[Rfam]
RNA sequence: AAGAUGACAUCACGAUGGUGAGUUAUACUUUUCCGGAAUAAAUUAAAUACGCUUCGGUUGUGAACUGCUUAGAUCCUGAGGACUGAGACAGAGAG
Numbered sequence: 001a002a003g004a005u006g007a008c009a010u011c012a013c014g015a016u017g018g019u020g021a022g023u024u025a026u027a028c029u030u031u032u033c034c035g036g037a038a039u040a041a042a043u044u045a046a047a048u049a050c051g052c053u054u055c056g057g058u059u060g061u062g063a064a065c066u067g068c069u070u071a072g073a074u075c076c077u078g079a080g081g082a083c084u085g086a087g088a089c090a091g092a093g094a095g
Stems, first nucleotide, its partner, number of pairs: 001030003004026005010021002065091003068087005074082003
Shown here is a 95-nucleotide sequence from Pseudoselenomonas ruminis, a member of the family "pan motif". It scores 50 bits against the family's covariance model.